The family of this 87-nucleotide RNA from Protea cynaroides is "Small nucleolar RNA Z221/R21b". Rfam classes the family as a C/D-box small nucleolar RNA. The family's consensus secondary structure was predicted with WAR. Gene Ontology terms of the family: nucleolus and RNA processing. NCBI's taxonomy places the organism under Eukaryota, Viridiplantae, Magnoliopsida, Proteaceae, Protea. Rfam 15.1 lists 588 matches to the family in 222 species.
Nucleotides: 087
Stems, first nucleotide, its partner, number of pairs: 001087004
Number, partner (000 for none) and nucleotide at each position: 001087g002086g003085g004084c005000u006000g007000u008000g009000a010000c011000g012000a013000u014000g015000g016000a017000a018000u019000g020000u021000c022000a023000u024000g025000c026000a027000c028000c029000a030000c031000u032000c033000u034000g035000a036000u037000a038000u039000c040000g041000a042000u043000u044000u045000a046000u047000c048000g049000a050000u051000c052000a053000g054000u055000g056000a057000u058000g059000a060000u061000a062000a063000u064000u065000g066000a067000c068000u069000c070000a071000a072000a073000c074000c075000c076000a077000u078000a079000u080000c081000u082000g083000a084004g085003c086002c087001u